[Rfam]
RNA sequence: UUACCUUACUCCUUUGCUAGUGGAACCGUGACCCUGAUCAGUUUAAUAUAUGAUCCGUGGUCCAUCGGACCACACGAUAUUAAAUUAAUUUUUUCUGGGCUACGGGGGGGUCGUACGGGUGAGCUUGCUUGCUCGACUCCUCCAGCGUUGCCUCUGUAUUGCACUGCAGCAGAGUGCGGCGCGACCCUA
Numbered sequence: 001u002u003a004c005c006u007u008a009c010u011c012c013u014u015u016g017c018u019a020g021u022g023g024a025a026c027c028g029u030g031a032c033c034c035u036g037a038u039c040a041g042u043u044u045a046a047u048a049u050a051u052g053a054u055c056c057g058u059g060g061u062c063c064a065u066c067g068g069a070c071c072a073c074a075c076g077a078u079a080u081u082a083a084a085u086u087a088a089u090u091u092u093u094u095c096u097g098g099g100c101u102a103c104g105g106g107g108g109g110g111u112c113g114u115a116c117g118g119g120u121g122a123g124c125u126u127g128c129u130u131g132c133u134c135g136a137c138u139c140c141u142c143c144a145g146c147g148u149u150g151c152c153u154c155u156g157u158a159u160u161g162c163a164c165u166g167c168a169g170c171a172g173a174g175u176g177c178g179g180c181g182c183g184a185c186c187c188u189a
Base pairs, nucleotide, nucleotide: 036055037054038053039052040051057073058072059071060070061069062068063067105142106141107140108139109138110137111136112135120131121130122129123128145182146181147180148179149178150177152174153173154172155171156170157169
RNA: U2 spliceosomal RNA